[Rfam]
RNA sequence: UGCUGUGAUGGUGUAAUUUGCGUCAUACCUUGUGAACAGCGACAGUUGCCUGCUGUCACCAUGCUGGCACAGGAGGCUGAUGACACUUCAUUCUGAGCA
Numbered sequence: 001u002g003c004u005g006u007g008a009u010g011g012u013g014u015a016a017u018u019u020g021c022g023u024c025a026u027a028c029c030u031u032g033u034g035a036a037c038a039g040c041g042a043c044a045g046u047u048g049c050c051u052g053c054u055g056u057c058a059c060c061a062u063g064c065u066g067g068c069a070c071a072g073g074a075g076g077c078u079g080a081u082g083a084c085a086c087u088u089c090a091u092u093c094u095g096a097g098c099a
Stems, first nucleotide, its partner, number of pairs: 001099003021082004030072005039064002041057005
Background
This 99-nucleotide RNA sequence from Lepisosteus oculatus belongs to the Rfam family "Small nucleolar RNA SNORD16". It scores 93 bits against the family's covariance model. Lineage of the source: Eukaryota > Opisthokonta > Deuterostomia > Actinopteri > Lepisosteus. The literature on the family includes a 2001 paper in EMBO J by Huttenhofer et al., "RNomics: an experimental approach that identifies 201 candidates for novel, small, non-messenger RNAs in mouse". The family is grouped with related families in Rfam's "SNORD16 clan". By type it is a C/D-box small nucleolar RNA. The family's consensus secondary structure was predicted with PFOLD. Its family is annotated with nucleolus and RNA processing in the Gene Ontology.